[Rfam]
RNA: c-di-GMP-I riboswitch aptamer
RNA sequence: AUCAAAUAAAGGCAAAGCCAUUGGAAAAUGGUGACGCAAAGCUAUAGGGUCUCAAUCGCAUAUGCGACAGACAGCCAGUUGCUGGC
Numbered sequence: 001a002u003c004a005a006a007u008a009a010a011g012g013c014a015a016a017g018c019c020a021u022u023g024g025a026a027a028a029u030g031g032u033g034a035c036g037c038a039a040a041g042c043u044a045u046a047g048g049g050u051c052u053c054a055a056u057c058g059c060a061u062a063u064g065c066g067a068c069a070g071a072c073a074g075c076c077a078g079u080u081g082c083u084g085g086c
Base pairs, nucleotide, nucleotide: 012037013036017032018031019030020029021028022027040080041079042078043077047076048075049072050071051070056067057066058065059064